FMN riboswitch aptamer (RFN element): a 152-nucleotide sequence from Aeribacillus pallidus.
RNA sequence: AUUCAUCUUCGGGGCAGGGUGAAAUUCCCGACCGGCGGUGAUAAAAGCUUUUAAGCUUUUUUAGCCCGUGACCCGUAAAGGUGUUUUUCCUUUACGGUGGAUCUGGUGAGAAUCCAGAGCCGACAGUAUAGUCUGGAUGGGAGAAGAUGAGG
Numbered sequence: 001a002u003u004c005a006u007c008u009u010c011g012g013g014g015c016a017g018g019g020u021g022a023a024a025u026u027c028c029c030g031a032c033c034g035g036c037g038g039u040g041a042u043a044a045a046a047g048c049u050u051u052u053a054a055g056c057u058u059u060u061u062u063a064g065c066c067c068g069u070g071a072c073c074c075g076u077a078a079a080g081g082u083g084u085u086u087u088u089c090c091u092u093u094a095c096g097g098u099g100g101a102u103c104u105g106g107u108g109a110g111a112a113u114c115c116a117g118a119g120c121c122g123a124c125a126g127u128a129u130a131g132u133c134u135g136g137a138u139g140g141g142a143g144a145a146g147a148u149g150a151g152g
Stems, first nucleotide, its partner, number of pairs: 003150008017029003031132002033122002035069004064120002073097004102118005124135003
The source organism's lineage runs through Bacteria, Bacillati, Bacillota, Bacillaceae and Aeribacillus.